Rfam assigns this 128-nucleotide sequence from Leptonychotes weddellii to the family "Small nucleolar RNA SNORA31". The source organism's lineage runs through Eukaryota, Craniata, Teleostomi, Carnivora and Leptonychotes. It is annotated as an H/ACA-box small nucleolar RNA. On this family, see Huttenhofer et al., EMBO J 2001: "RNomics: an experimental approach that identifies 201 candidates for novel, small, non-messenger RNAs in mouse". The family has 5 seed sequences and 2,094 matches in Rfam 15.1. The base pairs follow the family's consensus structure, which was predicted with RNAalifold. About the family: ACA31 (SNORA31) belongs to the H/ACA class of snoRNAs which are thought to guide the sites of modification of uridines to pseudouridines. ACA31 is predicted to guide the pseudouridylation of U3713 in 28S rRNA and U218 in 18S rRNA. This family includes the mouse homologue snoMBI-161. Rfam links the family to the GO terms RNA processing and nucleolus.

RNA sequence: UUCUAAAAGAGACCUGGAGCAGUUCCUGUCUGCUGCUAAGGUUUCCACUAGAGAUGCAAGAAAAAAGUGUCCUCGCGCUUUCUGUCUGUCUCAUUAUGGCAGUCAAGAUUGAAUGGGGGAGUACACGG
Numbered sequence: 001u002u003c004u005a006a007a008a009g010a011g012a013c014c015u016g017g018a019g020c021a022g023u024u025c026c027u028g029u030c031u032g033c034u035g036c037u038a039a040g041g042u043u044u045c046c047a048c049u050a051g052a053g054a055u056g057c058a059a060g061a062a063a064a065a066a067g068u069g070u071c072c073u074c075g076c077g078c079u080u081u082c083u084g085u086c087u088g089u090c091u092c093a094u095u096a097u098g099g100c101a102g103u104c105a106a107g108a109u110u111g112a113a114u115g116g117g118g119g120a121g122u123a124c125a126c127g128g
Base pairs, nucleotide, nucleotide: 002054003053004052009045010044011043012042013041014040018034019033020032021031022030070120071119072118073117074116078111081108082107083106086102087101088100089099090098